[Rfam]
RNA sequence: AGGUCGACGACGACGCAUCGGCAGGAGCGGAGGACCCGAGCACGACGGGUCCGGCGCCGGUCGCCGGACCCUUGGGGUGAAGCCGCAUCCGCGGCCGGGCAUCUUCGCCUGCCCGAACCCGACAGGUCAUCCUUCGCAGGCGGACGACGAAGGGUUG
Number, nucleotide and partner (000 for none) at each position: 001a000002g000003g000004u025005c024006g000007a000008c000009g000010a000011c000012g000013a000014c000015g000016c000017a000018u000019c000020g000021g000022c000023a000024g005025g004026a000027g137028c136029g135030g134031a133032g132033g000034a000035c000036c000037c074038g073039a072040g071041c000042a000043c000044g000045a000046c000047g000048g000049g000050u000051c000052c000053g000054g000055c000056g000057c000058c000059g000060g000061u000062c000063g000064c000065c000066g000067g000068a000069c000070c000071c040072u039073u038074g037075g120076g119077g118078u000079g000080a000081a000082g000083c094084c093085g092086c091087a000088u000089c000090c000091g086092c085093g084094g083095c000096c000097g114098g113099g112100c111101a000102u000103c000104u000105u000106c000107g000108c000109c000110u000111g100112c099113c098114c097115g000116a000117a000118c077119c076120c075121g000122a000123c000124a000125g000126g000127u000128c000129a000130u000131c000132c032133u031134u030135c029136g028137c027138a000139g000140g000141c000142g000143g000144a000145c000146g000147a000148c000149g000150a000151a000152g000153g000154g000155u000156u000157g000